[Rfam]
RNA: Bacterial small subunit ribosomal RNA, nucleotides 511 to 864
Organism: Formicincola oecophyllae
Nucleotides: 354
Base pairs, nucleotide, nucleotide: 001317002316003315009314011198012197013196014195016192018191019190020189022085023084024083025082027080028079031077032074033073034072035071036070037069038068039067040066046062047061048060049059050058051057089185090184091183092181093180094179095178096177100174101173102172103171104170105169106168107151111147112146113145114144115143116142117141118140122133123132124131159166160165203244204243205242206241207240208239212238213237217233218232219231220230255313256312257311258310259309260308263291264290265289266288267287268286269285270284271283272282273281274280295302296301319346320345321344328339329338330337331336
Number, partner (000 for none) and nucleotide at each position: 001317g002316g003315c004000g005000u006000a007000a008000a009314g010000g011198g012197c013196g014195c015000g016192u017000a018191g019190g020189c021000g022085g023084u024083u025082c026000g027080a028079a029000c030000a031077g032074u033073c034072a035071g036070a037069u038068g039067u040066g041000a042000a043000a044000u045000c046062c047061c048060u049059a050058g051057g052000c053000u054000c055000a056000a057051c058050c059049u060048a061047g062046g063000a064000a065000c066040u067039g068038c069037a070036u071035u072034u073033g074032a075000u076000a077031c078000g079028u080027u081000a082025g083024a084023a085022c086000u087000a088000g089185a090184g091183u092181c093180c094179g095178a096177g097000a098000g099000a100174g101173g102172a103171u104170u105169a106168u107151g108000g109000a110000a111147u112146u113145c114144c115143c116142a117141g118140u119000g120000u121000a122133g123132a124131g125000g126000u127000g128000a129000a130000a131124u132123u133122c134000g135000u136000a137000g138000a139000u140118a141117u142116u143115g144114g145113g146112a147111a148000g149000a150000a151107c152000a153000c154000c155000a156000g157000u158000u159166g160165c161000g162000a163000a164000g165160g166159c167000g168106a169105u170104a171103a172102u173101c174100u175000g176000g177096c178095u179094c180093g181092g182000u183091a184090c185089u186000g187000a188000c189020g190019c191018u192016g193000a194000g195014g196013c197012g198011c199000g200000a201000a202000a203244g204243c205242g206241u207240g208239g209000g210000g211000a212238g213237c214000a215000a216000a217233c218232a219231g220230g221000a222000u223000u224000a225000g226000a227000u228000a229000c230220c231219c232218u233217g234000g235000u236000a237213g238212u239208c240207c241206a242205c243204g244203c245000u246000g247000u248000a249000a250000a251000c252000g253000a254000u255313g256312u257311g258310u259309g260308c261000u262000g263291g264290a265289u266288g267287u268286u269285g270284g271283a272282a273281a274280g275000c276000u277000u278000a279000g280274c281273u282272u283271u284270u285269c286268a287267g288266u289265g290264u291263c292000g293000g294000a295302g296301c297000u298000a299000a300000c301296g302295c303000g304000u305000u306000a307000a308260g309259c310258a311257c312256a313255c314009c315003g316002c317001c318000u319346g320345g321344g322000g323000a324000g325000u326000a327000c328339g329338g330337u331336c332000g333000c334000a335000a336331g337330a338329c339328u340000g341000a342000a343000a344321c345320u346319c347000a348000a349000a350000g351000g352000a353000a354000u